RNA sequence: GGACAAUGAUGAAGAAAUCUUGCAAGGUCUCGUUCGUCAUAAGCGCAAUUUACUUUGCCUUGAUGACCAUUCUGUUAUAUCACCACCCAUAAGCCGAGUCC
Number, nucleotide and partner (000 for none) at each position: 001g101002g100003a099004c098005a000006a000007u000008g000009a000010u000011g000012a000013a000014g000015a000016a000017a000018u000019c000020u000021u000022g000023c000024a000025a000026g000027g000028u000029c000030u000031c000032g000033u000034u000035c000036g000037u000038c000039a000040u000041a000042a000043g000044c000045g000046c000047a061048a060049u000050u000051u000052a000053c000054u000055u000056u000057g000058c000059c000060u048061u047062g000063a000064u000065g000066a000067c000068c000069a000070u000071u000072c000073u000074g000075u000076u000077a000078u000079a000080u000081c000082a000083c000084c000085a000086c000087c000088c000089a000090u000091a000092a000093g000094c000095c000096g000097a000098g004099u003100c002101c001

The family of this 101-nucleotide RNA sequence from Chenopodium quinoa is "Small nucleolar RNA Z43". The source organism's lineage runs through Eukaryota, Magnoliopsida, Mesangiospermae, Amaranthaceae and Chenopodium. For this family Rfam cites "The high diversity of snoRNAs in plants: identification and comparative study of 120 snoRNA genes from Oryza sativa" (Chen et al., Nucleic Acids Res, 2003).